Nucleotides: 360
Stems, first nucleotide, its partner, number of pairs: 041056005060197005070190002072187004084176002088173003094110005111159007198212003204221005324340004330357006
Number, partner (000 for none) and nucleotide at each position: 001000c002000g003000u004000c005000u006000u007000u008000a009000a010000u011000u012000c013000g014000g015000a016000a017000c018000g019000g020000u021000u022000g023000a024000u025000c026000c027000c028000u029000a030000u031000a032000u033000u034000c035000a036000u037000g038000g039000g040000c041056g042055u043054c044053g045052g046000g047000c048000u049000u050000g051000c052045c053044c054043g055042a056041c057000u058000a059000u060197g061196g062195g063194g064193a065000u066000a067000a068000a069000c070190g071189c072187g073186c074185g075184c076000g077000u078000a079000a080000u081000a082000a083000g084176c085175g086000g087000a088173c089172u090171g091000g092000a093000c094110c095109c096108g097107g098106g099000u100000g101000c102000g103000a104000u105000u106098c107097c108096c109095g110094g111159c112158g113157g114156c115155u116154c117153c118000a119000c120000c121000a122000a123000a124000u125000c126000u127000u128000c129000c130000c131000c132000c133000g134000g135000g136000u137000a138000u139000c140000g141000c142000c143000g144000g145000g146000c147000a148000a149000g150000u151000g152000c153117g154116g155115g156114g157113c158112c159111g160000a161000u162000c163000a164000g165000g166000a167000u168000c169000g170000a171090c172089a173088g174000a175085c176084g177000u178000g179000u180000a181000a182000a183000g184075g185074c186073g187072u188000a189071g190070c191000u192000u193064u194063c195062u196061c197060c198212c199211g200210g201000c202000c203000u204221g205220a206219c207218c208217c209000a210200c211199c212198g213000u214000u215000u216000c217208g218207g219206g220205u221204c222000u223000u224000u225000u226000g227000a228000u229000a230000g231000a232000u233000g234000c235000g236000a237000a238000c239000g240000a241000u242000a243000a244000c245000u246000u247000c248000g249000c250000u251000u252000c253000u254000g255000a256000a257000g258000u259000u260000c261000g262000g263000c264000u265000c266000g267000c268000c269000g270000c271000g272000u273000a274000a275000g276000c277000g278000c279000g280000c281000g282000c283000u284000g285000a286000c287000u288000u289000c290000a291000a292000c293000c294000u295000a296000a297000a298000g299000c300000c301000c302000u303000u304000g305000c306000g307000g308000u309000u310000a311000g312000c313000a314000c315000c316000g317000u318000a319000a320000g321000g322000c323000g324340g325339g326338g327337c328000u329000c330357g331356g332355a333354g334353g335352g336000g337327g338326c339325c340324u341000g342000g343000c344000a345000a346000c347000a348000g349000a350000a351000c352335c353334c354333c355332u356331c357330c358000a359000c360000c